The family of this 91-nucleotide RNA sequence from Microctonus aethiopoides is "mir-317 microRNA precursor family". On this family, see Stark et al., Genome Res 2007: "Systematic discovery and characterization of fly microRNAs using 12 Drosophila genomes". Rfam links the family to the GO terms RISC complex and miRNA-mediated post-transcriptional gene silencing. The family's consensus secondary structure was predicted with RNAalifold. NCBI's taxonomy places the organism under Eukaryota, Ecdysozoa, Eumetabola, Apocrita, Microctonus.
[Rfam]
RNA sequence: GCCAUUGGAGAACAGGGAACCACUCUGCGUUCACUCGGUAGGUAAUGAAGCGGGUGAACACAGCUGGUGGUAUCUCAGUUAUCUGUUGGCA
Numbered sequence: 001g002c003c004a005u006u007g008g009a010g011a012a013c014a015g016g017g018a019a020c021c022a023c024u025c026u027g028c029g030u031u032c033a034c035u036c037g038g039u040a041g042g043u044a045a046u047g048a049a050g051c052g053g054g055u056g057a058a059c060a061c062a063g064c065u066g067g068u069g070g071u072a073u074c075u076c077a078g079u080u081a082u083c084u085g086u087u088g089g090c091a
Stems, first nucleotide, its partner, number of pairs: 008082001010080002015076001016074002019071002022068003025063003029059001031057002